RNA: Small nucleolar RNA SNORA70
Organism: Tetraodon nigroviridis
RNA sequence: CUGCAGCUUAUUAAGCCGACUGGUUCUGCUGUGGUGCGGUUCUGGUGUGCAGAGGCUGCAGACAGUGACUCUCUGGUUGUGUAUGUCCUCAGCUGGGAGGUGCUGAGUGCUUUAAGGGACCACUGAGACAAAC
Numbered sequence: 001c002u003g004c005a006g007c008u009u010a011u012u013a014a015g016c017c018g019a020c021u022g023g024u025u026c027u028g029c030u031g032u033g034g035u036g037c038g039g040u041u042c043u044g045g046u047g048u049g050c051a052g053a054g055g056c057u058g059c060a061g062a063c064a065g066u067g068a069c070u071c072u073c074u075g076g077u078u079g080u081g082u083a084u085g086u087c088c089u090c091a092g093c094u095g096g097g098a099g100g101u102g103c104u105g106a107g108u109g110c111u112u113u114a115a116g117g118g119a120c121c122a123c124u125g126a127g128a129c130a131a132a133c
Base pairs, nucleotide, nucleotide: 002051003050004049005048019046020045021044022043026039027038028037075121076120077119086109088107089106090105091104